Annotation
Shown here is a 105-nucleotide sequence from Aneurinibacillus danicus, a member of the family "SAM riboswitch aptamer (S box leader)".

RNA sequence: CUCUUAUCGAGAGAGGUGGAGGGACUGGCCCAAUGAAACCUCGGCAACCAUUGACACGUUCAACCGGUGCCAAUUCCAGCGAAACAUUGUUUCGAAAGAUAAGAG
Numbered sequence: 001c002u003c004u005u006a007u008c009g010a011g012a013g014a015g016g017u018g019g020a021g022g023g024a025c026u027g028g029c030c031c032a033a034u035g036a037a038a039c040c041u042c043g044g045c046a047a048c049c050a051u052u053g054a055c056a057c058g059u060u061c062a063a064c065c066g067g068u069g070c071c072a073a074u075u076c077c078a079g080c081g082a083a084a085c086a087u088u089g090u091u092u093c094g095a096a097a098g099a100u101a102a103g104a105g
Stems, first nucleotide, its partner, number of pairs: 001105008013042005021031003025079004043071004048067002051063003075097001080094006

A search with the family's covariance model found it, with a score of 101 bits. Pairs were carried over by alignment from the consensus structure, which is taken from published work.